[Rfam]
Nucleotides: 131
Base pairs, nucleotide, nucleotide: 002059003058004057005056006055007053012048013047015046016045017044018043019042020041023038024037025036026035070123071122072121073120074119083111084110085109086108088106089105091103092102093101
Number, partner (000 for none) and nucleotide at each position: 001000a002059c003058c004057g005056a006055g007053a008000g009000u010000a011000g012048a013047g014000u015046c016045a017044c018043a019042u020041c021000u022000u023038g024037a025036c026035a027000c028000g029000u030000u031000c032000g033000g034000u035026u036025g037024u038023u039000c040000u041020g042019g043018u044017g045016u046015g047013c048012u049000a050000u051000c052000g053007u054000u055006c056005u057004c058003g059002g060000a061000c062000a063000u064000c065000a066000a067000c068000u069000u070123c071122u072121g073120a074119u075000c076000a077000u078000a079000u080000u081000c082000a083111c084110u085109g086108g087000c088106u089105g090000u091103g092102g093101u094000g095000c096000c097000u098000c099000g100000u101093a102092u103091c104000u105089c106088a107000g108086c109085c110084a111083g112000c113000c114000a115000c116000c117000g118000c119074a120073u121072c122071a123070g124000u125000a126000a127000c128000a129000c130000u131000a

Shown here is a 131-nucleotide sequence from Alectura lathami, a member of the family "Small nucleolar RNA SNORA3/SNORA45 family". The members of this family belong to the H/ACA class of snoRNAs which are thought to guide the sites of modification of uridines to pseudouridines. Rfam classes the family as an H/ACA-box small nucleolar RNA. The source organism's lineage runs through Eukaryota, Bilateria, Sarcopterygii, Neognathae and Alectura. The family has 6 seed sequences and 2,080 matches in Rfam 15.1.